[Rfam]
RNA sequence: UCUUUGGAGAGUUACAAAAAACUAGAGUAGCUUAUUGAAGUAUUUUCAAUAGCCAAAUAGAACUCAUUGAAAAAGAAA
Numbered sequence: 001u002c003u004u005u006g007g008a009g010a011g012u013u014a015c016a017a018a019a020a021a022c023u024a025g026a027g028u029a030g031c032u033u034a035u036u037g038a039a040g041u042a043u044u045u046u047c048a049a050u051a052g053c054c055a056a057a058u059a060g061a062a063c064u065c066a067u068u069g070a071a072a073a074a075g076a077a078a
Stems, first nucleotide, its partner, number of pairs: 001076005009065005022060003030053003035049005
Shown here is a 78-nucleotide sequence, a member of the family "RAGATH-18 RNA". Actinobacteria, Firmicutes, Fusobacteria, Thermotogae (1 example). The family's RNA type in Rfam is small RNA.